Rfam assigns this 87-nucleotide RNA sequence from Arsukibacterium sp. MJ3 to the family "c-di-GMP-I riboswitch aptamer". Rfam's curators write: GEMM was predicted in a large-scale screen for bacterial structured RNA regulatory elements. Genes associated with GEMM are involved in a diverse array of functions, including chemotaxis regulation, signal transduction, secretion and chitin. The source organism's lineage runs through Bacteria, Pseudomonadota, Chromatiales, Chromatiaceae and Arsukibacterium. The family's consensus secondary structure is taken from published work.

[Rfam]
RNA sequence: AUUCAGCCAAGGCACGUCAGGUGAAAACCUGCUCACGCAAAGCCAUGGGCCUAAUACUUAAACAGUGAAGGCUGCCAGGUUGCAAUU
Numbered sequence: 001a002u003u004c005a006g007c008c009a010a011g012g013c014a015c016g017u018c019a020g021g022u023g024a025a026a027a028c029c030u031g032c033u034c035a036c037g038c039a040a041a042g043c044c045a046u047g048g049g050c051c052u053a054a055u056a057c058u059u060a061a062a063c064a065g066u067g068a069a070g071g072c073u074g075c076c077a078g079g080u081u082g083c084a085a086u087u
Stems, first nucleotide, its partner, number of pairs: 012038002018031005041081004046077003049072003056066003